[Rfam]
RNA sequence: GUUGUCAAUGGUAAGCGCACAAGCAAUAGCGCGGAGCAUUAAGGAAUUGACAACAAUUUGCCG
Numbered sequence: 001g002u003u004g005u006c007a008a009u010g011g012u013a014a015g016c017g018c019a020c021a022a023g024c025a026a027u028a029g030c031g032c033g034g035a036g037c038a039u040u041a042a043g044g045a046a047u048u049g050a051c052a053a054c055a056a057u058u059u060g061c062c063g
Stems, first nucleotide, its partner, number of pairs: 001054009